Rfam assigns this 133-nucleotide RNA sequence from Salvator merianae to the family "Small nucleolar RNA SNORA44". A reference for the family is Huttenhofer et al. (2001), "RNomics: an experimental approach that identifies 201 candidates for novel, small, non-messenger RNAs in mouse", EMBO J.
[Rfam]
RNA sequence: CUGCAUGUUCAACCAAGAGCUGUGGCUGAGCCGUUAGCCUCUGCGUCUCCAACAACAUGCAAGAAAAAUGCGGAGGGACUUUGACUUUGCAGUUUUUGGUUAGCUGCAGAAGUCACUCUGCUCUCCUACAUAG
Numbered sequence: 001c002u003g004c005a006u007g008u009u010c011a012a013c014c015a016a017g018a019g020c021u022g023u024g025g026c027u028g029a030g031c032c033g034u035u036a037g038c039c040u041c042u043g044c045g046u047c048u049c050c051a052a053c054a055a056c057a058u059g060c061a062a063g064a065a066a067a068a069u070g071c072g073g074a075g076g077g078a079c080u081u082u083g084a085c086u087u088u089g090c091a092g093u094u095u096u097u098g099g100u101u102a103g104c105u106g107c108a109g110a111a112g113u114c115a116c117u118c119u120g121c122u123c124u125c126c127u128a129c130a131u132a133g
Stems, first nucleotide, its partner, number of pairs: 013043001019038004023033002072126006088112001090106004
Dot-bracket structure: ............(.....((((((.......)).))))....)............................((((((..........(.((((.........)))).....)........)))))).......
A search with the family's covariance model found it, with a score of 67 bits. By type it is an H/ACA-box small nucleolar RNA. Lineage of the source: Eukaryota > Bilateria > Chordata > Craniata > Salvator. Rfam 15.1 lists 1,056 matches to the family in 599 species. Its family is annotated with RNA processing and nucleolus in the Gene Ontology. The base pairs follow the family's consensus structure, which was predicted with PFOLD.